[Rfam]
RNA sequence: GUCUGCCUGGCUCCCUGAAUGCCAUCUGGGAAGCUUGUCAAAUUGGUUGACAUGCCUCCUGGUUGGCAGUUGGGGAGCCAUGCAGGU
Numbered sequence: 001g002u003c004u005g006c007c008u009g010g011c012u013c014c015c016u017g018a019a020u021g022c023c024a025u026c027u028g029g030g031a032a033g034c035u036u037g038u039c040a041a042a043u044u045g046g047u048u049g050a051c052a053u054g055c056c057u058c059c060u061g062g063u064u065g066g067c068a069g070u071u072g073g074g075g076a077g078c079c080a081u082g083c084a085g086g087u
Stems, first nucleotide, its partner, number of pairs: 001087006008080007016072003020068005027061003
RNA: mir-160 microRNA precursor family